[Rfam]
RNA sequence: GUUAGCCAUGCGGGAGAGAUCGCCGGGGUCCUGUGUCAUUGAGGAUUCGGGGCGGCGCCGAAGGGGCAAAUCCUCCCCGGAACCUCUCAGGCAAAAGGACCGCAUGGGCAGG
Numbered sequence: 001g002u003u004a005g006c007c008a009u010g011c012g013g014g015a016g017a018g019a020u021c022g023c024c025g026g027g028g029u030c031c032u033g034u035g036u037c038a039u040u041g042a043g044g045a046u047u048c049g050g051g052g053c054g055g056c057g058c059c060g061a062a063g064g065g066g067c068a069a070a071u072c073c074u075c076c077c078c079g080g081a082a083c084c085u086c087u088c089a090g091g092c093a094a095a096a097g098g099a100c101c102g103c104a105u106g107g108g109c110a111g112g
Stems, first nucleotide, its partner, number of pairs: 006107008020055004057092003060088002064086003071079001

Annotation: The family of this 112-nucleotide sequence from Paractinoplanes atraurantiacus is "Glycine riboswitch aptamer". Rfam describes the family as follows. This family represents the bacterial glycine riboswitch. Pairs were carried over by alignment from the consensus structure. The match comes from Rfam's covariance-model search (67 bits).